[Rfam]
This 98-nucleotide RNA from Subtercola boreus belongs to the Rfam family "mraW RNA". The base pairs follow the family's consensus structure, which is taken from published work. It is annotated as a cis-regulatory element. Taxonomically the source falls in Subtercola (Bacteria, Actinomycetota, Micrococcales, Microbacteriaceae).

RNA sequence: ACGCAUCCGCGUCCCGUGACUCCCAGCCGUUCGCCCUGGCACACUUCCCCGGUGCCAGGUCGACUCGGAUGGGGAUCAGGGGACACGGCCCGCCGGAA
Number, nucleotide and partner (000 for none) at each position: 001a000002c000003g000004c000005a000006u000007c000008c000009g000010c000011g084012u083013c082014c081015c080016g000017u000018g077019a076020c000021u074022c073023c072024c071025a070026g000027c068028c067029g066030u000031u063032c062033g061034c000035c059036c058037u057038g056039g055040c054041a053042c052043a000044c000045u000046u000047c000048c000049c000050c000051g000052g042053u041054g040055c039056c038057a037058g036059g035060u000061c033062g032063a031064c000065u000066c029067g028068g027069a000070u025071g024072g023073g022074g021075a000076u019077c018078a000079g000080g015081g014082g013083a012084c011085a000086c000087g000088g000089c000090c000091c000092g000093c000094c000095g000096g000097a000098a000